Overview
This 114-nucleotide RNA sequence from Tistlia consotensis belongs to the Rfam family "TPP riboswitch aptamer (THI element)". It scores 70 bits against the family's covariance model. Taxonomically the source falls in Tistlia consotensis (Bacteria, Pseudomonadati, Rhodovibrionaceae, Tistlia).

Nucleotides: 114
Base pairs, nucleotide, nucleotide: 006102007101008100009099010098011064012063013062014061017034018033019032020031021030042057043056044055045054046053047052070095071094072093073092076089077088078087079086
Number, partner (000 for none) and nucleotide at each position: 001000g002000u003000u004000g005000g006102u007101u008100c009099c010098u011064a012063g013062g014061g015000g016000u017034g018033u019032c020031c021030u022000c023000g024000c025000a026000u027000g028000c029000g030021a031020g032019g033018g034017c035000u036000g037000a038000g039000a040000g041000u042057c043056c044055g045054c046053c047052g048000g049000c050000c051000g052047u053046g054045g055044c056043g057042g058000u059000g060000a061014c062013c063012c064011u065000u066000a067000g068000a069000a070095c071094c072093u073092g074000a075000u076089c077088c078087g079086g080000g081000u082000c083000a084000u085000g086079c087078c088077g089076g090000c091000g092073c093072a094071g095070g096000g097000a098010a099009g100008g101007a102006a103000c104000c105000g106000g107000a108000a109000g110000c111000g112000g113000c114000c